The family of this 385-nucleotide RNA from Sphingobium boeckii is "Bacterial RNase P class A". Taxonomically the source falls in Sphingobium (Bacteria, Pseudomonadati, Pseudomonadota, Sphingomonadales).
RNA sequence: UCAGAGGGUCGGGCGGCCGCGGCCCCGUUGUAAGGACGGGGGCGAGGAAAGUCCGGGCUCCACGGAAUGAAGGUGCCGGGUAACGCCCGGCGGGGUCAGGGAGCGAUUUCUGGCCUCAGGGACAGUGCCACAGAGAGCAGACCGCCUCCUGCGCAAGCAUGAGGUAAGGGUGAAAGGGUGCGGUAAGAGCGCACCGCGGGACUGGCAACAGGACCGGCAUGGUAAACCCCACCUGGAGCAAGACCGAAUAGGGGUGGCAUAUGGCUGAUUCCGGCCCGCCGCCCGGGUUGGUUGCUUGAGGCGCGGAGCAAUCCGCGUCCUAGAGGAAUGGUCGCCGAACCCCGCAAGGGGGGAACAAAACCCGGCUUAUAGGCCCUCUGACAAU
Numbered sequence: 001u002c003a004g005a006g007g008g009u010c011g012g013g014c015g016g017c018c019g020c021g022g023c024c025c026c027g028u029u030g031u032a033a034g035g036a037c038g039g040g041g042g043c044g045a046g047g048a049a050a051g052u053c054c055g056g057g058c059u060c061c062a063c064g065g066a067a068u069g070a071a072g073g074u075g076c077c078g079g080g081u082a083a084c085g086c087c088c089g090g091c092g093g094g095g096u097c098a099g100g101g102a103g104c105g106a107u108u109u110c111u112g113g114c115c116u117c118a119g120g121g122a123c124a125g126u127g128c129c130a131c132a133g134a135g136a137g138c139a140g141a142c143c144g145c146c147u148c149c150u151g152c153g154c155a156a157g158c159a160u161g162a163g164g165u166a167a168g169g170g171u172g173a174a175a176g177g178g179u180g181c182g183g184u185a186a187g188a189g190c191g192c193a194c195c196g197c198g199g200g201a202c203u204g205g206c207a208a209c210a211g212g213a214c215c216g217g218c219a220u221g222g223u224a225a226a227c228c229c230c231a232c233c234u235g236g237a238g239c240a241a242g243a244c245c246g247a248a249u250a251g252g253g254g255u256g257g258c259a260u261a262u263g264g265c266u267g268a269u270u271c272c273g274g275c276c277c278g279c280c281g282c283c284c285g286g287g288u289u290g291g292u293u294g295c296u297u298g299a300g301g302c303g304c305g306g307a308g309c310a311a312u313c314c315g316c317g318u319c320c321u322a323g324a325g326g327a328a329u330g331g332u333c334g335c336c337g338a339a340c341c342c343c344g345c346a347a348g349g350g351g352g353g354a355a356c357a358a359a360a361c362c363c364g365g366c367u368u369a370u371a372g373g374c375c376c377u378c379u380g381a382c383a384a385u
Stems, first nucleotide, its partner, number of pairs: 001381010011370001012336007020044002023041006049368003053365005058238004069269001071234005076090005091119001092117011120229002125227002127223003142169002144165005150159003177195006196218001197216003202211003242293004252284006263277002266274001300319008